[Rfam]
RNA: Actinobacteria sRNA Ms_IGR-5
Organism: Naumannella halotolerans
RNA sequence: ACACGGAAGGGAGGUGGUCCGAUACAUGAAUGACUUACGGACAAGUGAGGUGGCUCGUCGCUGAUCCAGCGGCCAGUCCUUGGACGCGGUAGCGAAUCCACACGAGCUACCCGAACCCGCGGGCGCCGGACCCUGUCCACCCGGCAGCUGACUUCCUGAUCGAUCCAGGUCGAACGGCAAGCCCGCGGGUUCGCCCAUG
Number, nucleotide and partner (000 for none) at each position: 001a000002c000003a000004c000005g000006g000007a000008a000009g000010g000011g000012a058013g000014g056015u000016g055017g054018u053019c000020c000021g000022a000023u000024a000025c000026a000027u000028g000029a000030a000031u000032g000033a000034c000035u000036u000037a000038c000039g000040g000041a000042c000043a000044a000045g000046u000047g000048a000049g000050g000051u000052g000053g018054c017055u016056c014057g000058u012059c094060g093061c092062u091063g090064a000065u000066c089067c088068a000069g087070c086071g085072g000073c000074c082075a081076g080077u000078c000079c000080u076081u075082g074083g000084a000085c071086g070087c069088g067089g066090u063091a062092g061093c060094g059095a000096a000097u000098c000099c000100a000101c000102a000103c000104g000105a000106g000107c000108u000109a000110c000111c000112c193113g192114a191115a190116c189117c188118c187119g186120c185121g184122g183123g182124c181125g145126c144127c143128g142129g141130a000131c000132c000133c000134u000135g000136u000137c000138c000139a000140c000141c129142c128143g127144g126145c125146a000147g000148c000149u000150g000151a000152c000153u000154u000155c000156c000157u000158g000159a000160u000161c000162g000163a000164u000165c000166c000167a000168g000169g000170u000171c000172g000173a000174a000175c000176g000177g000178c000179a000180a000181g124182c123183c122184c121185g120186c119187g118188g117189g116190u115191u114192c113193g112194c000195c000196c000197a000198u000199g000